[Rfam]
RNA: Group II catalytic intron D1-D4-3
RNA sequence: ACUAUCGCGAGGUGGCGGGGAGAGGAAGGGAUAGCGAAAUCGCGGCUCUACGAACAGAAACGUGAUAUUAAGGCGUAUAUAGCGGAUGAGGGGGCUGAAAGCUCUAAAGUCCAAAUAGGUAGUCGUAACCUAUAUGCGUAAAUCACGAGAGUAAUGGAAGUGGAGCGAAGGGCU
Numbered sequence: 001a002c003u004a005u006c007g008c009g010a011g012g013u014g015g016c017g018g019g020g021a022g023a024g025g026a027a028g029g030g031a032u033a034g035c036g037a038a039a040u041c042g043c044g045g046c047u048c049u050a051c052g053a054a055c056a057g058a059a060a061c062g063u064g065a066u067a068u069u070a071a072g073g074c075g076u077a078u079a080u081a082g083c084g085g086a087u088g089a090g091g092g093g094g095c096u097g098a099a100a101g102c103u104c105u106a107a108a109g110u111c112c113a114a115a116u117a118g119g120u121a122g123u124c125g126u127a128a129c130c131u132a133u134a135u136g137c138g139u140a141a142a143u144c145a146c147g148a149g150a151g152u153a154a155u156g157g158a159a160g161u162g163g164a165g166c167g168a169a170g171g172g173c174u
Stems, first nucleotide, its partner, number of pairs: 002015005028174002032170001035167002041160001043156002045152005061147006073139003077135006084112004090105004